[Rfam]
RNA sequence: GGUGUAUGGAAUGAAGUUUGAUCCAAGAUCAGUCAUAUCUUUGCAAUACCUUCCUUUUAAGUUGUUAAUUAAUAGCUUUAACUUAUGGGGUUUUGGUGGCAUCAAUGGAUCUCGGACCAGGCUUCAUUCCUCACACC
Numbered sequence: 001g002g003u004g005u006a007u008g009g010a011a012u013g014a015a016g017u018u019u020g021a022u023c024c025a026a027g028a029u030c031a032g033u034c035a036u037a038u039c040u041u042u043g044c045a046a047u048a049c050c051u052u053c054c055u056u057u058u059a060a061g062u063u064g065u066u067a068a069u070u071a072a073u074a075g076c077u078u079u080a081a082c083u084u085a086u087g088g089g090g091u092u093u094u095g096g097u098g099g100c101a102u103c104a105a106u107g108g109a110u111c112u113c114g115g116a117c118c119a120g121g122c123u124u125c126a127u128u129c130c131u132c133a134c135a136c137c
Stems, first nucleotide, its partner, number of pairs: 001137005008130006016122005024114001026112005

Shown here is a 137-nucleotide RNA sequence from Hibiscus syriacus, a member of the family "mir-166 microRNA precursor family". Its family is annotated with miRNA-mediated post-transcriptional gene silencing and RISC complex in the Gene Ontology. Rfam's curators write: This family represents the plant microRNA (miRNA) precursor mir-166. A search with the family's covariance model found it, with a score of 63 bits.